Shown here is a 404-nucleotide RNA from Cecembia lonarensis, a member of the family "Bacterial RNase P class A".
The source organism's lineage runs through Bacteria, Bacteroidota, Cytophagia, Cyclobacteriaceae and Cecembia lonarensis.
Rfam links the family to the GO terms ribonuclease P activity, dimeric ribonuclease P complex and tRNA processing.
[Rfam]
RNA sequence: AGUGCAAGCUGACUUGUCGUCCUGAUUAAGUUCAGGGAGGAAAGUCCGGGCAACAUAGAGCGCCAUACUUCCUAACGGGAAGGGGCCUUACUGGUGACGGCAAGGUCACAGACAGUGCCACAGAAAAUAUACCGCCCCGAUCCAGAUCGUUAUCUGGUCGAGGUAAGGGUGAAAUGGUGGAGUAAGAGCCCACCGGGUCCUUGGUGACAAGGAUUGCAUGGUAAACCUUAUGGGUUGAAAGAUCAAAUAGGUUCCGCCUUGGAAGCAAUUCCAAAAAAGGCUGCUCGUCUUUAUGCGGAAUGGGUAGAUCGAUGGAGCGCAAGUGUGAACCUGCGCCUAGAUAAAUGACAAGUUAGUCACCUAACGGUGAUGAACAGAACCCGGCUUAUAGGCUUGCACAUUUU
Numbered sequence: 001a002g003u004g005c006a007a008g009c010u011g012a013c014u015u016g017u018c019g020u021c022c023u024g025a026u027u028a029a030g031u032u033c034a035g036g037g038a039g040g041a042a043a044g045u046c047c048g049g050g051c052a053a054c055a056u057a058g059a060g061c062g063c064c065a066u067a068c069u070u071c072c073u074a075a076c077g078g079g080a081a082g083g084g085g086c087c088u089u090a091c092u093g094g095u096g097a098c099g100g101c102a103a104g105g106u107c108a109c110a111g112a113c114a115g116u117g118c119c120a121c122a123g124a125a126a127a128u129a130u131a132c133c134g135c136c137c138c139g140a141u142c143c144a145g146a147u148c149g150u151u152a153u154c155u156g157g158u159c160g161a162g163g164u165a166a167g168g169g170u171g172a173a174a175u176g177g178u179g180g181a182g183u184a185a186g187a188g189c190c191c192a193c194c195g196g197g198u199c200c201u202u203g204g205u206g207a208c209a210a211g212g213a214u215u216g217c218a219u220g221g222u223a224a225a226c227c228u229u230a231u232g233g234g235u236u237g238a239a240a241g242a243u244c245a246a247a248u249a250g251g252u253u254c255c256g257c258c259u260u261g262g263a264a265g266c267a268a269u270u271c272c273a274a275a276a277a278a279g280g281c282u283g284c285u286c287g288u289c290u291u292u293a294u295g296c297g298g299a300a301u302g303g304g305u306a307g308a309u310c311g312a313u314g315g316a317g318c319g320c321a322a323g324u325g326u327g328a329a330c331c332u333g334c335g336c337c338u339a340g341a342u343a344a345a346u347g348a349c350a351a352g353u354u355a356g357u358c359a360c361c362u363a364a365c366g367g368u369g370a371u372g373a374a375c376a377g378a379a380c381c382c383g384g385c386u387u388a389u390a391g392g393c394u395u396g397c398a399c400a401u402u403u404u
Base pairs, nucleotide, nucleotide: 002399003398004397005396006395007394008393009392010391011389012353013352014351015350016349017348018347020037021036022035023034024033025032042387043386044385046384047383048382049381050380051237052236053235054234058286059285060284061283063233064232065231066230067229068082069081070080071079072078083109084107085106086105087104088103089102110228111227115226116225117222118221119220132168133167134164135163136162138160139159140158141157142156176194177193178192179191180190195217196215197214198213199212200211201210202209203208241310242309243308244307251301252300253299254298255297256296277291278290279289280288281287317336318335319334320333321332323330324329